[Rfam]
RNA: Mammalian CPEB3 ribozyme
Organism: Alligator mississippiensis
RNA sequence: UUGGUUUAAUAAAAGGCCAUAACAGAAACACUCAUAGUGCAGCCUAUCAGAUUCCAAUGAAAUCUGUGAAUUCUGCU
Numbered sequence: 001u002u003g004g005u006u007u008a009a010u011a012a013a014a015g016g017c018c019a020u021a022a023c024a025g026a027a028a029c030a031c032u033c034a035u036a037g038u039g040c041a042g043c044c045u046a047u048c049a050g051a052u053u054c055c056a057a058u059g060a061a062a063u064c065u066g067u068g069a070a071u072u073c074u075g076c077u
Stems, first nucleotide, its partner, number of pairs: 015044003021077001023075005029039002048066006